[Rfam]
Nucleotides: 054
Stems, first nucleotide, its partner, number of pairs: 013043001014041003020036006
Number, partner (000 for none) and nucleotide at each position: 001000c002000a003000u004000g005000c006000a007000c008000u009000u010000a011000u012000u013043u014041g015040u016039a017000a018000g019000u020036c021035g022034c023033u024032c025031u026000g027000g028000g029000u030000a031025a032024g033023a034022g035021c036020g037000u038000c039016u040015g041014c042000u043013a044000a045000a046000u047000g048000a049000a050000g051000u052000a053000a054000u